Background
This 319-nucleotide RNA sequence from Oceanodroma tethys belongs to the Rfam family "Nuclear RNase P". For this family Rfam cites "Ribonuclease P: unity and diversity in a tRNA processing ribozyme" (Frank and Pace, Annu Rev Biochem, 1998). Rfam 15.1 lists 3,848 matches to the family in 1,862 species.
RNA sequence: UCCGGGGGAAGCUCAUCGCCGAGGCCACGCACUGGGUGCGCCGUCACCCGCGCCCCGCCUCGGGGAAGGUCUGAGGGAAGGGCCGCCCGGCGGCUCUCGCAGAGCCCCGCCCGCGAGGGGCGGGUGAGCCACCAGAGAGGGGGGGCGCCGCGCUCCGGGCCGGCCUGGGCAGGAGAAGCCGAGCGGGUUCGCACGGAGCCCCGGCGGAUGCUCGUGGCCCCGCGGUGCUUUGAGACAGACUCACGGCCGGCGACGCUUGAGUCCAAUGGGUGAGGUGGGGCACCGCCCUACAACCCAAUUCAGACUACUCUCCUCGGGA
Numbered sequence: 001u002c003c004g005g006g007g008g009a010a011g012c013u014c015a016u017c018g019c020c021g022a023g024g025c026c027a028c029g030c031a032c033u034g035g036g037u038g039c040g041c042c043g044u045c046a047c048c049c050g051c052g053c054c055c056c057g058c059c060u061c062g063g064g065g066a067a068g069g070u071c072u073g074a075g076g077g078a079a080g081g082g083c084c085g086c087c088c089g090g091c092g093g094c095u096c097u098c099g100c101a102g103a104g105c106c107c108c109g110c111c112c113g114c115g116a117g118g119g120g121c122g123g124g125u126g127a128g129c130c131a132c133c134a135g136a137g138a139g140g141g142g143g144g145g146c147g148c149c150g151c152g153c154u155c156c157g158g159g160c161c162g163g164c165c166u167g168g169g170c171a172g173g174a175g176a177a178g179c180c181g182a183g184c185g186g187g188u189u190c191g192c193a194c195g196g197a198g199c200c201c202c203g204g205c206g207g208a209u210g211c212u213c214g215u216g217g218c219c220c221c222g223c224g225g226u227g228c229u230u231u232g233a234g235a236c237a238g239a240c241u242c243a244c245g246g247c248c249g250g251c252g253a254c255g256c257u258u259g260a261g262u263c264c265a266a267u268g269g270g271u272g273a274g275g276u277g278g279g280g281c282a283c284c285g286c287c288c289u290a291c292a293a294c295c296c297a298a299u300u301c302a303g304a305c306u307a308c309u310c311u312c313c314u315c316g317g318g319a
Stems, first nucleotide, its partner, number of pairs: 001319003007313003012274006020062005034049005071303005081248004092106005107123006124244005130238001144229009275291007